[Rfam]
RNA sequence: GGAAGCUGGUUUCAUAUGGUGUCUUAGAUUGUGUCUGUGCUGAUUCUAGCACCAUUUGAAAUCAGUGUUCU
Dot-bracket structure: ((((((((((((((.((((((...((((................)))).)))))).)))))))))).))))